[Rfam]
RNA sequence: CGACAUCCCCAUUACCUAUGGACACGGUGUCGCAGGCUCUCAACAGGGGUUGUUUCCCCAGGGUCUGCUGGAAGUUUUUCCGUGUCCCAG
Numbered sequence: 001c002g003a004c005a006u007c008c009c010c011a012u013u014a015c016c017u018a019u020g021g022a023c024a025c026g027g028u029g030u031c032g033c034a035g036g037c038u039c040u041c042a043a044c045a046g047g048g049g050u051u052g053u054u055u056c057c058c059c060a061g062g063g064u065c066u067g068c069u070g071g072a073a074g075u076u077u078u079u080c081c082g083u084g085u086c087c088c089a090g
Stems, first nucleotide, its partner, number of pairs: 001032007009021004033067008046059004
SAM-Chlorobi RNA: a 90-nucleotide sequence from Pelodictyon phaeoclathratiforme. It is one of the family's seed sequences.